[Rfam]
RNA: T-box leader
RNA sequence: UAAAAAACAAAGAACAGAAGAGUACCUUUAUUAGUUCAUUCAAGAGAGUCUUUGGCUGGUGGAAAAAGACAGGAAGAUAAAGCGAACCACAUCUGGGAGUUAACUUUUUGAACAACAAGUAGGAAAGUUCGGGUAUGCUCGUUACAGCAUUGAAGUCAAUGACUUCUUGAGGUUAUCGUUGUGAGACGAUAAUAAAAAAAGGUGGAACCACGAUUUUACGUCCUUUGG
Numbered sequence: 001u002a003a004a005a006a007a008c009a010a011a012g013a014a015c016a017g018a019a020g021a022g023u024a025c026c027u028u029u030a031u032u033a034g035u036u037c038a039u040u041c042a043a044g045a046g047a048g049u050c051u052u053u054g055g056c057u058g059g060u061g062g063a064a065a066a067a068g069a070c071a072g073g074a075a076g077a078u079a080a081a082g083c084g085a086a087c088c089a090c091a092u093c094u095g096g097g098a099g100u101u102a103a104c105u106u107u108u109u110g111a112a113c114a115a116c117a118a119g120u121a122g123g124a125a126a127g128u129u130c131g132g133g134u135a136u137g138c139u140c141g142u143u144a145c146a147g148c149a150u151u152g153a154a155g156u157c158a159a160u161g162a163c164u165u166c167u168u169g170a171g172g173u174u175a176u177c178g179u180u181g182u183g184a185g186a187c188g189a190u191a192a193u194a195a196a197a198a199a200a201g202g203u204g205g206a207a208c209c210a211c212g213a214u215u216u217u218a219c220g221u222c223c224u225u226u227g228g
Base pairs, nucleotide, nucleotide: 007100008099015095016094017093018092026082027081028080029079030078037073039071048070049069050068051067052066053065103128104127105126106125107124108123109122130141131140132139172193173192174191175190176189177188178187199225200224201223202222210221211220212219